Rfam assigns this 167-nucleotide RNA sequence from Vulpes vulpes to the family "Interferon gamma 5' UTR regulatory element". Taxonomically the source falls in Vulpes (Eukaryota, Bilateria, Mammalia, Caniformia). Its family is annotated with positive regulation of translation in the Gene Ontology. From the family's description: This family represents a pseudoknot containing stem-loop structure found in the 5' UTR of interferon (IFN) gamma mRNA. This structure is thought to be involved in translational regulation and the pseudoknot has been found to activate PKR which is known to be a translational inhibitor. Mutations in the pseudoknot structure have been found to reduce PKR activation and increase the translation of IFN-gamma.
Nucleotides: 167
Base pairs, nucleotide, nucleotide: 009069010068011067012066013065014064015118016117020114021113022112025107026106027105028104032101033100035098041093042092044090045089047087051085052084053083056081057080058079059078119167120166123163124162125161129141130140131139132138146157147156148155149154
Number, partner (000 for none) and nucleotide at each position: 001000c002000a003000u004000u005000u006000u007000u008000c009069u010068g011067a012066u013065u014064g015118u016117c017000u018000a019000c020114a021113g022112g023000u024000u025107g026106g027105c028104u029000a030000u031000u032101a033100g034000a035098a036000a037000a038000g039000a040000a041093a042092g043000a044090u045089c046000a047087g048000c049000u050000g051085a052084g053083u054000c055000c056081u057080u058079u059078g060000g061000a062000c063000c064014u065013g066012a067011u068010c069009a070000a071000c072000u073000u074000c075000a076000u077000c078059c079058a080057g081056g082000a083053g084052c085051u086000a087047c088000c089045g090044a091000c092042u093041u094000c095000a096000a097000c098035u099000a100033c101032u102000u103000c104028g105027g106026c107025c108000u109000a110000a111000c112022u113021c114020u115000c116000u117016g118015a119167a120166a121000c122000g123163a124162u125161g126000a127000a128000u129141u130140a131139u132138a133000c134000a135000a136000g137000c138132u139131a140130u141129a142000u143000c144000u145000u146157a147156g148155c149154u150000u151000u152000u153000c154149a155148g156147c157146u158000u159000u160000g161125c162124g163123u164000g165000a166120u167119u